RNA sequence: GCCCGGGUGGCGGAAUUGGCAGACGCGCCAGGUUGAGGGCCUGGUUCCGGUUAAACGGAGUGCAGGUUCGAUCCCUGUCCCGGGCA
Numbered sequence: 001g002c003c004c005g006g007g008u009g010g011c012g013g014a015a016u017u018g019g020c021a022g023a024c025g026c027g028c029c030a031g032g033u034u035g036a037g038g039g040c041c042u043g044g045u046u047c048c049g050g051u052u053a054a055a056c057g058g059a060g061u062g063c064a065g066g067u068u069c070g071a072u073c074c075c076u077g078u079c080c081c082g083g084g085c086a
Stems, first nucleotide, its partner, number of pairs: 001085007010026003028044005062078005
RNA: tRNA
Organism: Phycisphaerae bacterium RAS2